[Rfam]
RNA sequence: UUGCCUUAAACUAAUGAGUAAGGAAAACAAAGCGGGCGGCGGGAGCUGCUCGCCGCGCUAACAAAAAAUUGUGCGCAGGAAUUUAUGGAGGGGGAAUAGGCUGGCCGAGUGCUGACGCUGCUUACUUCGCAGAACUCGCUCGUGCGGGCCUCCCA
Numbered sequence: 001u002u003g004c005c006u007u008a009a010a011c012u013a014a015u016g017a018g019u020a021a022g023g024a025a026a027a028c029a030a031a032g033c034g035g036g037c038g039g040c041g042g043g044a045g046c047u048g049c050u051c052g053c054c055g056c057g058c059u060a061a062c063a064a065a066a067a068a069u070u071g072u073g074c075g076c077a078g079g080a081a082u083u084u085a086u087g088g089a090g091g092g093g094g095a096a097u098a099g100g101c102u103g104g105c106c107g108a109g110u111g112c113u114g115a116c117g118c119u120g121c122u123u124a125c126u127u128c129g130c131a132g133a134a135c136u137c138g139c140u141c142g143u144g145c146g147g148g149c150c151u152c153c154c155a
Base pairs, nucleotide, nucleotide: 004023005022006021007020008019032053033052034051035050036049037048038047039046054075055074056073057072058071092154093153094152098151099150100149101148102147104145106142107141109139110138111137118132119131120130121129
Description:
Rfam assigns this 155-nucleotide RNA from Asparagus officinalis to the family "U12 minor spliceosomal RNA". NCBI's taxonomy places the organism under Eukaryota, Streptophytina, Spermatophyta, Petrosaviidae, Asparagus. By type it is a spliceosomal small nuclear RNA. Clan: U2 clan. The match comes from Rfam's covariance-model search (93 bits). Pairs were carried over by alignment from the consensus structure.